[Rfam]
RNA sequence: AAAAGCCAAUAGGGGUGCCGAAAAUCGGCUGAGAAGGACUCAAGGUCCUACCCUUGAACCUGACCUGGGUAAUACCGGCGUAGGGAAUUGGCUUUUAGUAUAC
Numbered sequence: 001a002a003a004a005g006c007c008a009a010u011a012g013g014g015g016u017g018c019c020g021a022a023a024a025u026c027g028g029c030u031g032a033g034a035a036g037g038a039c040u041c042a043a044g045g046u047c048c049u050a051c052c053c054u055u056g057a058a059c060c061u062g063a064c065c066u067g068g069g070u071a072a073u074a075c076c077g078g079c080g081u082a083g084g085g086a087a088u089u090g091g092c093u094u095u096u097a098g099u100a101u102a103c
Base pairs, nucleotide, nucleotide: 006091007090008089009088010087011054012053013052014051017029018028019027020026021025036048037047038046039045040044059084060083061082062081065078066077067076068075

Shown here is a 103-nucleotide sequence from Natranaerobius trueperi, a member of the family "TPP riboswitch aptamer (THI element)".
Taxonomically the source falls in Natranaerobius (Bacteria, Bacillati, Clostridia, Natranaerobiaceae).
Rfam describes the family as follows. Vitamin B(1) in its active form thiamin pyrophosphate (TPP) is an essential coenzyme that is synthesised by coupling of pyrimidine and thiazole moieties in bacteria.